[Rfam]
RNA sequence: AGACCCCGUGCGGGAGAGUCCGCUUCGUCCGCCAGCCGAAGCGGCGCCGAAGGAGCAACGCCUCCCCGACAACCUCUCAGGCCUAUGGACCGUGCGGGCGAG
Numbered sequence: 001a002g003a004c005c006c007c008g009u010g011c012g013g014g015a016g017a018g019u020c021c022g023c024u025u026c027g028u029c030c031g032c033c034a035g036c037c038g039a040a041g042c043g044g045c046g047c048c049g050a051a052g053g054a055g056c057a058a059c060g061c062c063u064c065c066c067c068g069a070c071a072a073c074c075u076c077u078c079a080g081g082c083c084u085a086u087g088g089a090c091c092g093u094g095c096g097g098g099c100g101a102g
Base pairs, nucleotide, nucleotide: 006097007096008095009094010093011092012091013090020044021043022042023041024040025039026038027037046082047081048080049078050077053076054075055074
RNA: Glycine riboswitch aptamer
Organism: Halopolyspora algeriensis